RNA sequence: GGGGAUCUACGGAGCCCUAUAACCUUGGCCACAUUUUGUGGCCCUUAAGCUGACGGAAGACAGAGA
Numbered sequence: 001g002g003g004g005a006u007c008u009a010c011g012g013a014g015c016c017c018u019a020u021a022a023c024c025u026u027g028g029c030c031a032c033a034u035u036u037u038g039u040g041g042c043c044c045u046u047a048a049g050c051u052g053a054c055g056g057a058a059g060a061c062a063g064a065g066a
Stems, first nucleotide, its partner, number of pairs: 001018004006014001008012001027043006